The family of this 72-nucleotide RNA is "Small nucleolar RNA SNORD113/SNORD114 family". The sequence is in the family's curated seed alignment. Rfam links the family to the GO terms nucleolus and RNA processing. Its Rfam clan is "SNORD74 clan". The family has 59 seed sequences and 5,721 matches in Rfam 15.1.
RNA sequence: UGGAUCGAUGGUGACUGUUGAUGGCAUAUGACUCACAUAUGAUGAGUACGUAUCUGGAACUCUGAGGUCUGU
Number, nucleotide and partner (000 for none) at each position: 001u000002g070003g069004a068005u067006c066007g000008a000009u000010g000011g000012u000013g000014a000015c000016u000017g000018u000019u000020g000021a000022u000023g000024g000025c000026a000027u000028a000029u000030g000031a000032c000033u000034c000035a000036c000037a000038u000039a000040u000041g000042a000043u000044g000045a000046g000047u000048a000049c000050g000051u000052a000053u000054c000055u000056g000057g000058a000059a000060c000061u000062c000063u000064g000065a000066g006067g005068u004069c003070u002071g000072u000